[Rfam]
RNA: Cis-regulator of HTH transcription factor
Organism: Paracerasibacillus soli
RNA sequence: CUUUUUUACGCAUAAUAAACCACCUCUAUACAUUCUACUGUUCCUGUUAAACUAGAAACAGGUAUAGAAAAACGUACUAUAUGUUUAGACAGUUCCUGUUGCGUUAUUUAUACAACAAAAGAUACUGCCAGACGGCAAUAAAAAAAAUCGUUAUCUGGCAGUGCUCUUUUCAUGCGUUAAAAUGAUAUUCCCUUUCCAGACGACGGUUUAAAUAGCCGCCGUCUUUCUUUUUAUACAGAAU
Number, nucleotide and partner (000 for none) at each position: 001c000002u112003u000004u110005u000006u000007u000008a104009c000010g000011c101012a000013u000014a100015a099016u098017a097018a000019a000020c000021c000022a000023c000024c000025u000026c000027u000028a000029u076030a075031c074032a000033u072034u071035c000036u069037a000038c067039u066040g065041u064042u000043c062044c061045u060046g059047u058048u057049a000050a000051a000052c000053u000054a000055g000056a000057a048058a047059c046060a045061g044062g043063u000064a041065u040066a039067g038068a000069a036070a000071a034072a033073c000074g031075u030076a029077c000078u091079a000080u089081a000082u087083g000084u000085u000086u000087a082088g000089a080090c000091a078092g000093u000094u000095c000096c000097u017098g016099u015100u014101g011102c000103g000104u008105u000106a000107u000108u000109u000110a004111u000112a002113c000114a000115a000116c000117a000118a000119a000120a000121g000122a000123u163124a162125c161126u160127g159128c158129c157130a156131g155132a151133c150134g149135g148136c000137a000138a000139u000140a000141a000142a000143a000144a000145a000146a000147a000148u135149c134150g133151u132152u000153a000154u000155c131156u130157g129158g128159c127160a126161g125162u124163g123164c000165u000166c000167u000168u000169u000170u000171c000172a000173u000174g000175c000176g000177u000178u000179a000180a000181a000182a000183u000184g000185a000186u000187a000188u000189u000190c000191c000192c000193u000194u000195u000196c000197c000198a224199g223200a222201c221202g220203a000204c218205g217206g216207u215208u214209u000210a000211a000212a000213u000214a208215g207216c206217c205218g204219c000220c202221g201222u200223c199224u198225u000226u000227c000228u000229u000230u000231u000232u000233a000234u000235a000236c000237a000238g000239a000240a000241u000